Notes:
Rfam assigns this 97-nucleotide RNA from Bacillus sp. HNG to the family "pan motif". The match comes from Rfam's covariance-model search (63 bits). The base pairs follow the family's consensus structure, which is taken from published work. The organism belongs to Bacillus, within Bacteria.
[Rfam]
RNA sequence: UGGGUGGUAUCCUUUAUGGAACUACACCGAGCUUUAAUUUUUACCAAUGCAAUUCACAAUUGUAUUCUGCCUUGAUCCGUUGGACUGGGACAGAGGG
Number, nucleotide and partner (000 for none) at each position: 001u029002g028003g027004g025005u024006g023007g022008u021009a000010u020011c019012c000013u000014u000015u000016a000017u000018g000019g011020a010021a008022c007023u006024a005025c004026a000027c003028c002029g001030a000031g000032c000033u000034u000035u000036a000037a000038u000039u000040u000041u000042u000043a000044c000045c000046a000047a000048u000049g000050c000051a000052a000053u000054u000055c000056a000057c000058a000059a000060u000061u000062g000063u000064a000065u000066u000067c093068u092069g091070c089071c088072u087073u000074g085075a000076u084077c083078c082079g000080u000081u000082g078083g077084a076085c074086u000087g072088g071089g070090a000091c069092a068093g067094a000095g000096g000097g000